[Rfam]
RNA sequence: GUGCCUUCACGUGAUGAAAACUAUGUUGGUAGGGACAUCUGAGAGGGUGAUGAAUGCCAACAUAUCUGAGCUGGGCAC
Numbered sequence: 001g002u003g004c005c006u007u008c009a010c011g012u013g014a015u016g017a018a019a020a021c022u023a024u025g026u027u028g029g030u031a032g033g034g035a036c037a038u039c040u041g042a043g044a045g046g047g048u049g050a051u052g053a054a055u056g057c058c059a060a061c062a063u064a065u066c067u068g069a070g071c072u073g074g075g076c077a078c
Stems, first nucleotide, its partner, number of pairs: 001078005
The family of this 78-nucleotide RNA sequence from Piaya cayana is "Small nucleolar RNA SNORD74". Rfam classes the family as a C/D-box small nucleolar RNA. NCBI's taxonomy places the organism under Eukaryota, Chordata, Gnathostomata, Archosauria, Piaya. A search with the family's covariance model found it, with a score of 79 bits. Pairs were carried over by alignment from the consensus structure, which was predicted with PFOLD.